[Rfam]
The family of this 102-nucleotide RNA from Texcoconibacillus texcoconensis is "Purine riboswitch aptamer". The match comes from Rfam's covariance-model search (88 bits). Taxonomically the source falls in Texcoconibacillus (Bacteria, Bacillati, Caryophanales, Bacillaceae). The family's consensus secondary structure is taken from published work. Rfam describes the family as follows. Riboswitches are metabolite binding domains within certain messenger RNAs that serve as precision sensors for their corresponding targets.
RNA sequence: UUAGGAAAAAAUAUCUACACUCGUAUAAUCGCAGGAAUAGGGCCUGCAAGUUUCUACCAAAUGACCAUAAAUCAUUUGACUACGAGAGAAAGAACGGUACGA
Numbered sequence: 001u002u003a004g005g006a007a008a009a010a011a012u013a014u015c016u017a018c019a020c021u022c023g024u025a026u027a028a029u030c031g032c033a034g035g036a037a038u039a040g041g042g043c044c045u046g047c048a049a050g051u052u053u054c055u056a057c058c059a060a061a062u063g064a065c066c067a068u069a070a071a072u073c074a075u076u077u078g079a080c081u082a083c084g085a086g087a088g089a090a091a092g093a094a095c096g097g098u099a100c101g102a
Stems, first nucleotide, its partner, number of pairs: 018088001020086006029049001031047005058078007